[Rfam]
RNA sequence: CUUGCUAGAAGAUAUGUUUGUAUUCUAUUGGUUGUAAUAUGUAUCAACCGGAAGUCAAACAUAUUAUUAUAGCGAG
Number, nucleotide and partner (000 for none) at each position: 001c000002u000003u000004g000005c072006u071007a070008g000009a068010a000011g065012a064013u063014a062015u061016g060017u059018u058019u057020g056021u000022a055023u054024u053025c000026u051027a000028u000029u000030g049031g048032u047033u046034g045035u000036a000037a000038u000039a000040u000041g000042u000043a000044u000045c034046a033047a032048c031049c030050g000051g026052a000053a024054g023055u022056c020057a019058a018059a017060c016061a015062u014063a013064u012065u011066a000067u000068u009069a000070u007071a006072g005073c000074g000075a000076g000
The record is a 76-nucleotide RNA from Folsomia candida, which matches "mir-190 microRNA precursor family" in Rfam. It scores 49 bits against the family's covariance model. A reference for the family is Bar et al. (2008), "MicroRNA discovery and profiling in human embryonic stem cells by deep sequencing of small RNA libraries", Stem Cells.